[Rfam]
Nucleotides: 141
Base pairs, nucleotide, nucleotide: 020052021051024048026047027046028045034042035041085117086116089112090111093108094107095106096105097104130141131140133138
Number, partner (000 for none) and nucleotide at each position: 001000a002000g003000c004000u005000u006000u007000g008000c009000a010000c011000a012000g013000u014000g015000g016000c017000a018000g019000u020052a021051u022000c023000a024048u025000a026047g027046c028045c029000a030000a031000u032000g033000a034042g035041g036000u037000u038000u039000a040000u041035c042034u043000g044000a045028g046027g047026c048024a049000c050000a051021a052020u053000u054000a055000u056000u057000g058000c059000u060000a061000a062000u063000u064000g065000a066000a067000a068000a069000c070000a071000u072000u073000u074000c075000c076000c077000a078000a079000u080000a081000c082000c083000c084000u085117g086116c087000c088000a089112u090111g091000a092000a093108g094107a095106c096105u097104u098000g099000c100000a101000a102000u103000a104097g105096a106095g107094u108093u109000g110000a111090c112089a113000c114000u115000a116086g117085u118000a119000a120000u121000u122000u123000u124000u125000g126000a127000c128000a129000g130141u131140c132000u133138c134000c135000a136000u137000g138133g139000u140131g141130a
Shown here is a 141-nucleotide RNA sequence from Saimiri boliviensis, a member of the family "U4 spliceosomal RNA". The base pairs follow the family's consensus structure, which is taken from published work. A search with the family's covariance model found it, with a score of 90 bits. Rfam's curators write: U4 small nuclear RNA (U4 snRNA) is a component of the major U2-dependent spliceosome.